RNA sequence: GCCACAUGAUGUUUCUAAUACGUCAUUAGCACUUUGUGUAAUGCUGACUCCAUCUAUCACCCUAUAACUGAUGGCU
Numbered sequence: 001g002c003c004a005c006a007u008g009a010u011g012u013u014u015c016u017a018a019u020a021c022g023u024c025a026u027u028a029g030c031a032c033u034u035u036g037u038g039u040a041a042u043g044c045u046g047a048c049u050c051c052a053u054c055u056a057u058c059a060c061c062c063u064a065u066a067a068c069u070g071a072u073g074g075c076u
Base pairs, nucleotide, nucleotide: 001075002074003073004072029039030038031037032036
Small nucleolar RNA SNORD83: a 76-nucleotide RNA sequence from Hymenochirus boettgeri. It scores 58 bits against the family's covariance model. Lineage of the source: Eukaryota > Bilateria > Chordata > Gnathostomata > Hymenochirus. The family has 7 seed sequences and 1,393 matches in Rfam 15.1. On this family, see Jady and Kiss, Nucleic Acids Res 2000: "Characterisation of the U83 and U84 small nucleolar RNAs: two novel 2'-O-ribose methylation guide RNAs that lack complementarities to ribosomal RNAs".